[Rfam]
RNA: Plastid-psbA-4 3UTR RNA
RNA sequence: GAAACAAAGCAGCAAUACCCCAUAUCUUGUUUUAGCAAGAUAUGGGGUAUUGCUACUUUGU
Number, nucleotide and partner (000 for none) at each position: 001g000002a000003a000004a000005c000006a059007a058008a057009g056010c000011a054012g053013c052014a051015a050016u049017a048018c000019c000020c000021c044022a043023u000024a041025u040026c039027u038028u037029g036030u000031u000032u000033u000034a000035g000036c029037a028038a027039g026040a025041u024042a000043u022044g021045g000046g000047g000048u017049a016050u015051u014052g013053c012054u011055a000056c009057u008058u007059u006060g000061u000